SAM riboswitch aptamer (S box leader): a 104-nucleotide RNA from Geothrix sp. Taxonomically the source falls in Geothrix (Bacteria, Pseudomonadati, Holophagales, Holophagaceae). The family's consensus secondary structure is taken from published work. Rfam's curators write: The SAM riboswitch is found upstream of a number of genes which code for proteins involved in methionine or cysteine biosynthesis in Gram-positive bacteria. It scores 79 bits against the family's covariance model.

RNA sequence: GCGCUAUCCAGAAAGGUGGAGGGAAAGGCCCUGUGAAACCUUGGCAACCUGCGACAGCAAGGUGCCAACUCCUGCCCUCGGCGUGCCCGGGGGGAAGAUACCGA
Dot-bracket structure: .((.((((....(((((...(((..[[[)))......)))))((((.(((((....))).))))))...(]]].((((((.......))))))..))))).)).